This 98-nucleotide RNA from Gracilibacillus boraciitolerans belongs to the Rfam family "Guanidine-I riboswitch aptamer".
The organism belongs to Gracilibacillus boraciitolerans, within Bacteria.
From the family's description: This family represents a conserved RNA structure found upstream of the ykkC and yxkD genes in Bacillus subtilis and related genes in other bacteria. The function of this family is unclear although it has been suggested that it may function to switch on efflux pumps and detoxification systems in response to harmful environmental molecules.

[Rfam]
RNA sequence: UUAACGGUUUUCUAGGGUUCCGCAAUUAUUAAAUUGGUCUGGUCCAAGAGAAAACACACAGUUUGACUGUGACACGGAAGGAUAAAAGCCUGGGAGAG
Numbered sequence: 001u002u003a004a005c006g007g008u009u010u011u012c013u014a015g016g017g018u019u020c021c022g023c024a025a026u027u028a029u030u031a032a033a034u035u036g037g038u039c040u041g042g043u044c045c046a047a048g049a050g051a052a053a054a055c056a057c058a059c060a061g062u063u064u065g066a067c068u069g070u071g072a073c074a075c076g077g078a079a080g081g082a083u084a085a086a087a088g089c090c091u092g093g094g095a096g097a098g
Base pairs, nucleotide, nucleotide: 007055008054009053010052011051012050015045016044020042021041022039023036024035025034026033027032057071058070059069060068061067062066073093075096079091080090081089